ASpks TB sRNA: a 69-nucleotide RNA from Amycolatopsis mediterranei. Lineage of the source: Bacteria > Actinomycetota > Actinomycetes > Amycolatopsis > Amycolatopsis mediterranei. A search with the family's covariance model found it, with a score of 81 bits. Pairs were carried over by alignment from the consensus structure, which is taken from published work. Rfam classes the family as an antisense RNA.
Nucleotides: 069
Base pairs, nucleotide, nucleotide: 014026015025016024017023028065029064030063032059033058037054038053039052041050042049043048
Number, partner (000 for none) and nucleotide at each position: 001000c002000u003000u004000c005000a006000g007000c008000g009000a010000g011000c012000c013000g014026a015025g016024c017023c018000a019000c020000a021000a022000c023017g024016g025015c026014u027000g028065u029064u030063c031000c032059c033058g034000c035000u036000c037054c038053u039052g040000c041050c042049c043048g044000u045000a046000g047000g048043u049042g050041g051000c052039c053038a054037g055000c056000a057000g058033c059032g060000c061000c062000u063030g064029g065028a066000c067000c068000u069000c